Record summary:
The record is an 89-nucleotide RNA sequence from Lupinus albus, which matches "Small nucleolar RNA snoR8a" in Rfam. A reference for the family is Brown et al. (2001), "Multiple snoRNA gene clusters from Arabidopsis", RNA. A search with the family's covariance model found it, with a score of 96 bits. Its family is annotated with nucleolus and RNA processing in the Gene Ontology.
RNA sequence: UUGUUUGUGAUGAUUAUAAAAAAUUCCUCGUACUGAUUGCUAUUGCCAUAGCAUGACAGACACUUUUACACCCAUAGAAUAUGAGCAAC
Numbered sequence: 001u002u003g004u005u006u007g008u009g010a011u012g013a014u015u016a017u018a019a020a021a022a023a024u025u026c027c028u029c030g031u032a033c034u035g036a037u038u039g040c041u042a043u044u045g046c047c048a049u050a051g052c053a054u055g056a057c058a059g060a061c062a063c064u065u066u067u068a069c070a071c072c073c074a075u076a077g078a079a080u081a082u083g084a085g086c087a088a089c
Stems, first nucleotide, its partner, number of pairs: 003089002006087002